The family of this 88-nucleotide sequence from Beta vulgaris is "Small nucleolar RNA Z43". Gene Ontology terms of the family: nucleolus and RNA processing.
RNA sequence: GGACAAUGACGAGGAAUAAAUUAAGGUCUCGUUCGUCGUAAGUGCGAUUUCAUUGCCUUGCCGAAAACUCAUAACCAUUUCCGAGUCC
Numbered sequence: 001g002g003a004c005a006a007u008g009a010c011g012a013g014g015a016a017u018a019a020a021u022u023a024a025g026g027u028c029u030c031g032u033u034c035g036u037c038g039u040a041a042g043u044g045c046g047a048u049u050u051c052a053u054u055g056c057c058u059u060g061c062c063g064a065a066a067a068c069u070c071a072u073a074a075c076c077a078u079u080u081c082c083g084a085g086u087c088c
Stems, first nucleotide, its partner, number of pairs: 001088004046059002

A search with the family's covariance model found it, with a score of 44 bits. On this family, see Chen et al., Nucleic Acids Res 2003: "The high diversity of snoRNAs in plants: identification and comparative study of 120 snoRNA genes from Oryza sativa". Lineage of the source: Eukaryota > Magnoliopsida > Mesangiospermae > Gunneridae > Beta vulgaris. It is annotated as a C/D-box small nucleolar RNA. Pairs were carried over by alignment from the consensus structure, which was predicted with PFOLD.